RNA: MIR1120/MIR1122 microRNA precursor family
Organism: Triticum aestivum
RNA sequence: AUACUCCCUCUGUCCCAUAAUGUAAGAUGUUUUUUGACACUAGUGUCAAAAAACAUCUUACAUUAUGGGACGGAGGGAGUAC
Numbered sequence: 001a002u003a004c005u006c007c008c009u010c011u012g013u014c015c016c017a018u019a020a021u022g023u024a025a026g027a028u029g030u031u032u033u034u035u036g037a038c039a040c041u042a043g044u045g046u047c048a049a050a051a052a053a054c055a056u057c058u059u060a061c062a063u064u065a066u067g068g069g070a071c072g073g074a075g076g077g078a079g080u081a082c
Stems, first nucleotide, its partner, number of pairs: 003080003007076005013070005019064021